[Rfam]
RNA sequence: GAUAACACGUUGAUGAGAAGAGUAUGUUAAACCCUCACUUUCAGAGAGAAGAUAUAUUAGCUGUAAAUAUCUUUAUUUGAGAUUAACAGAAAACUAACUCUGAGUGGCUCUAAUCCAGCCCGUAUUUGUCACGUUACGACAUAUUUGAGUGAUUCUUAAAAUUUUAAGAAUAACUAGAGUGGAACCACGGAUAUUACACUUCGUCUCUAUA
Numbered sequence: 001g002a003u004a005a006c007a008c009g010u011u012g013a014u015g016a017g018a019a020g021a022g023u024a025u026g027u028u029a030a031a032c033c034c035u036c037a038c039u040u041u042c043a044g045a046g047a048g049a050a051g052a053u054a055u056a057u058u059a060g061c062u063g064u065a066a067a068u069a070u071c072u073u074u075a076u077u078u079g080a081g082a083u084u085a086a087c088a089g090a091a092a093a094c095u096a097a098c099u100c101u102g103a104g105u106g107g108c109u110c111u112a113a114u115c116c117a118g119c120c121c122g123u124a125u126u127u128g129u130c131a132c133g134u135u136a137c138g139a140c141a142u143a144u145u146u147g148a149g150u151g152a153u154u155c156u157u158a159a160a161a162u163u164u165u166a167a168g169a170a171u172a173a174c175u176a177g178a179g180u181g182g183a184a185c186c187a188c189g190g191a192u193a194u195u196a197c198a199c200u201u202c203g204u205c206u207c208u209a210u211a
Base pairs, nucleotide, nucleotide: 007105008104015100016099017098025088026087027086028085029084030083037077039075048074049073050072051071052070053069054068055067107119108118109117121133122132123131152171153170154169155168156167157166158165176208177207178206179205187204188203189202190201191200

Rfam assigns this 211-nucleotide sequence from Clostridium baratii to the family "T-box leader". A search with the family's covariance model found it, with a score of 111 bits. Rfam describes the family as follows. Uncharged tRNA acts as the effector for transcription antitermination of genes in the T-box leader family. T-boxes are found upstream of many aminoacyl-tRNA synthetase genes and some amino acid biosynthetic genes usually in Gram-positive bacteria. Lineage of the source: Bacteria > Bacillati > Clostridiaceae > Clostridium > Clostridium baratii.